[Rfam]
RNA: MIR8001 microRNA precursor family
Organism: Solanum tuberosum
RNA sequence: AUGGGGAUUAGUAUGAAAAUUUGCAGGAAAAUAAGUUUCCUGCGGAUUUUCAUACUAAUUCCUAGAA
Numbered sequence: 001a002u003g004g005g006g007a008u009u010a011g012u013a014u015g016a017a018a019a020u021u022u023g024c025a026g027g028a029a030a031a032u033a034a035g036u037u038u039c040c041u042g043c044g045g046a047u048u049u050u051c052a053u054a055c056u057a058a059u060u061c062c063u064a065g066a067a
Base pairs, nucleotide, nucleotide: 002064003063004062005061006060007059008058009057010056011055012054013053014052015051016050017049018048019047020046021045022044023043024042025041026040027039028038029037030036